[Rfam]
RNA sequence: UCUUCAUUUCGCACACUCUCUCACCUCUCUGACCGAUGAGAGAGAGUGUGAAAUGAGGAGA
Numbered sequence: 001u002c003u004u005c006a007u008u009u010c011g012c013a014c015a016c017u018c019u020c021u022c023a024c025c026u027c028u029c030u031g032a033c034c035g036a037u038g039a040g041a042g043a044g045a046g047u048g049u050g051a052a053a054u055g056a057g058g059a060g061a
Base pairs, nucleotide, nucleotide: 001059002058003057004056005055006054007053010050012048013047014046016044017043019041020040021039022038